[Rfam]
RNA sequence: ACGCUCAAGGAGCGCUGCAGCUGCGGUCCGUGCGGCAGAACUGGAUUCUGCCGCGCGUGCCGUCGUCAGGCUUGAGAUCGAUCCAACCGCGCUCACCCGGA
Numbered sequence: 001a002c003g004c005u006c007a008a009g010g011a012g013c014g015c016u017g018c019a020g021c022u023g024c025g026g027u028c029c030g031u032g033c034g035g036c037a038g039a040a041c042u043g044g045a046u047u048c049u050g051c052c053g054c055g056c057g058u059g060c061c062g063u064c065g066u067c068a069g070g071c072u073u074g075a076g077a078u079c080g081a082u083c084c085a086a087c088c089g090c091g092c093u094c095a096c097c098c099g100g101a
Stems, first nucleotide, its partner, number of pairs: 004076005021065001023063004
About this RNA:
A member of the RNA family "SAH (S-adenosyl-L-homocysteine) riboswitch aptamer" from a Comamonadaceae bacterium, 101 nucleotides long. Lineage of the source: Bacteria > Pseudomonadati > Betaproteobacteria > Burkholderiales > Comamonadaceae. Pairs were carried over by alignment from the consensus structure, which is taken from published work.